A member of the RNA family "Eukaryotic small subunit ribosomal RNA" from Smittium mucronatum, 165 nucleotides of a longer RNA.
Pairs were carried over by alignment from the consensus structure, which is taken from published work.
A search with the family's covariance model found it, with a score of 1769 bits.
Gene Ontology terms of the family: structural constituent of ribosome and ribosome.
RNA sequence: CCGCCCGUCGCUACUACCGAUUGAAUGGCUUAGUGAGGCCUCCGGACUGGCUAUAAAAUCUUGGAAACGAGCUUUUACUGCUAGGAAGUUGGUCAAACUUGGUCAUUUAGAGGAAGUAAAAGUCGUAACAAGGUUUCCGUAGGUGAACCUGCGGAAGGAUCAUUA
Numbered sequence: 001c002c003g004c005c006c007g008u009c010g011c012u013a014c015u016a017c018c019g020a021u022u023g024a025a026u027g028g029c030u031u032a033g034u035g036a037g038g039c040c041u042c043c044g045g046a047c048u049g050g051c052u053a054u055a056a057a058a059u060c061u062u063g064g065a066a067a068c069g070a071g072c073u074u075u076u077a078c079u080g081c082u083a084g085g086a087a088g089u090u091g092g093u094c095a096a097a098c099u100u101g102g103u104c105a106u107u108u109a110g111a112g113g114a115a116g117u118a119a120a121a122g123u124c125g126u127a128a129c130a131a132g133g134u135u136u137c138c139g140u141a142g143g144u145g146a147a148c149c150u151g152c153g154g155a156a157g158g159a160u161c162a163u164u165a
Base pairs, nucleotide, nucleotide: 001132003129006125007124009122012118013117014116015115017113018112021109023108024107025106026105027104028103029102030101032099033098034097037094038093039092040091043088047084048083049082050081051080054077055076056075057074060071061070062069134157135156136155137154138153139152140151141150142149143148